A member of the RNA family "tRNA" from Allorhizobium borbori, 74 nucleotides long.
Rfam links the family to the GO term triplet codon-amino acid adaptor activity.
The match comes from Rfam's covariance-model search (66 bits).
The source organism's lineage runs through Bacteria, Alphaproteobacteria, Hyphomicrobiales, Rhizobiaceae and Allorhizobium.
The family's consensus secondary structure is taken from published work.
About the family: Transfer RNA (tRNA) molecules are approximately 80 nucleotides in length. Their secondary structure includes four short double-helical elements and three loops (D, anti-codon, and T loops).
It is annotated as a transfer RNA.
RNA sequence: GGUCCCGUAGCUCAGCAGGAUAGAGCACCAGAUUCCUAAUCUGGGGGUCACGCGUUCGAAUCGCGUCGGGAUCA
Numbered sequence: 001g002g003u004c005c006c007g008u009a010g011c012u013c014a015g016c017a018g019g020a021u022a023g024a025g026c027a028c029c030a031g032a033u034u035c036c037u038a039a040u041c042u043g044g045g046g047g048u049c050a051c052g053c054g055u056u057c058g059a060a061u062c063g064c065g066u067c068g069g070g071a072u073c074a
Stems, first nucleotide, its partner, number of pairs: 001073007010026004028044005050066005